RNA sequence: CGGGGAGUAGCUCAGCUUGGUAGAGCGCUGCGUUUGGGACGCAGAUGUCGCAGGUUCGAAUCCUGUCUCCCCGA
Numbered sequence: 001c002g003g004g005g006a007g008u009a010g011c012u013c014a015g016c017u018u019g020g021u022a023g024a025g026c027g028c029u030g031c032g033u034u035u036g037g038g039a040c041g042c043a044g045a046u047g048u049c050g051c052a053g054g055u056u057c058g059a060a061u062c063c064u065g066u067c068u069c070c071c072c073g074a
Stems, first nucleotide, its partner, number of pairs: 001073007010026004028044005050066005
RNA: tRNA